Overview:
A member of the RNA family "Archaeal large subunit ribosomal RNA" from Methanothrix harundinacea, 445 nucleotides of a longer RNA. Its family is annotated with ribosome and structural constituent of ribosome in the Gene Ontology.
RNA sequence: CCUUCCGAAACAUGUCGCAGCAUGACCUGACUGGAGGCCGUCGGCGGAGUAGAGCACUGAUUGGGGAAUCCGGGAAAGAAAUUUUUCGCUCUCUUGUCAAACUCCCAAACCGUCGUCGCCUGAGAAGGUCGGAGUCCGGACUGGGGGGUAAGCUUCCAGUCCGUAAGGGAAACAACCCAGACCGUGGUUAAGGCCCCAAAAUGUCGGCUAAGUGUUAACACUAAAGGGAGUCCUAGGCCCCAGACAACUGGAAGGUUAGCUUAGAAGCAGCUAUCCUUUAAAGAGUGCGUAACAGCUCACCAGUCGAGGUUUAGGGCCCCGAAAAUGGACGGGGCUAAGCCGACUGCCGAUACCACGGAGCACCGAAAGGUGAUCUCGUAGGAAGGCGUUGUGCGUGGGCAGAAGCGCCUCCGUGAGGAGGUGUGGACCACGUGGAAACGAAAAU
Numbered sequence: 001c002c003u004u005c006c007g008a009a010a011c012a013u014g015u016c017g018c019a020g021c022a023u024g025a026c027c028u029g030a031c032u033g034g035a036g037g038c039c040g041u042c043g044g045c046g047g048a049g050u051a052g053a054g055c056a057c058u059g060a061u062u063g064g065g066g067a068a069u070c071c072g073g074g075a076a077a078g079a080a081a082u083u084u085u086u087c088g089c090u091c092u093c094u095u096g097u098c099a100a101a102c103u104c105c106c107a108a109a110c111c112g113u114c115g116u117c118g119c120c121u122g123a124g125a126a127g128g129u130c131g132g133a134g135u136c137c138g139g140a141c142u143g144g145g146g147g148g149u150a151a152g153c154u155u156c157c158a159g160u161c162c163g164u165a166a167g168g169g170a171a172a173c174a175a176c177c178c179a180g181a182c183c184g185u186g187g188u189u190a191a192g193g194c195c196c197c198a199a200a201a202u203g204u205c206g207g208c209u210a211a212g213u214g215u216u217a218a219c220a221c222u223a224a225a226g227g228g229a230g231u232c233c234u235a236g237g238c239c240c241c242a243g244a245c246a247a248c249u250g251g252a253a254g255g256u257u258a259g260c261u262u263a264g265a266a267g268c269a270g271c272u273a274u275c276c277u278u279u280a281a282a283g284a285g286u287g288c289g290u291a292a293c294a295g296c297u298c299a300c301c302a303g304u305c306g307a308g309g310u311u312u313a314g315g316g317c318c319c320c321g322a323a324a325a326u327g328g329a330c331g332g333g334g335c336u337a338a339g340c341c342g343a344c345u346g347c348c349g350a351u352a353c354c355a356c357g358g359a360g361c362a363c364c365g366a367a368a369g370g371u372g373a374u375c376u377c378g379u380a381g382g383a384a385g386g387c388g389u390u391g392u393g394c395g396u397g398g399g400c401a402g403a404a405g406c407g408c409c410u411c412c413g414u415g416a417g418g419a420g421g422u423g424u425g426g427a428c429c430a431c432g433u434g435g436a437a438a439c440g441a442a443a444a445u
Stems, first nucleotide, its partner, number of pairs: 001386006011024005026134001027132006036120003040117001042115006052105001053103002059098003063094005072087006138162009167178003182358007192348003201345001203344006226320003230317010247304005253277003258272003278282001283298001287296002359376002361372004387440001389437002392434007405424008